[Rfam]
RNA sequence: CCAGCCGCUCAAUGAGGGCUGGCUUCGCUGGGAGCCAGGAUUUGGCACCCUGUAACCAUGUUGCUUUCAGGAGGAUAUGGCUAUGGCAA
Numbered sequence: 001c002c003a004g005c006c007g008c009u010c011a012a013u014g015a016g017g018g019c020u021g022g023c024u025u026c027g028c029u030g031g032g033a034g035c036c037a038g039g040a041u042u043u044g045g046c047a048c049c050c051u052g053u054a055a056c057c058a059u060g061u062u063g064c065u066u067u068c069a070g071g072a073g074g075a076u077a078u079g080g081c082u083a084u085g086g087c088a089a
Stems, first nucleotide, its partner, number of pairs: 001022006008016002030050003034046005052084003056080007064073003
This 89-nucleotide RNA from Agrobacterium sp. AGB01 belongs to the Rfam family "Repression of heat shock gene expression (ROSE) element".
The source organism's lineage runs through Bacteria, Pseudomonadati, Pseudomonadota, Alphaproteobacteria and Agrobacterium.
For this family Rfam cites "A mRNA-based thermosensor controls expression of rhizobial heat shock genes" (Nocker et al., Nucleic Acids Res, 2001).
Pairs were carried over by alignment from the consensus structure, which is taken from published work.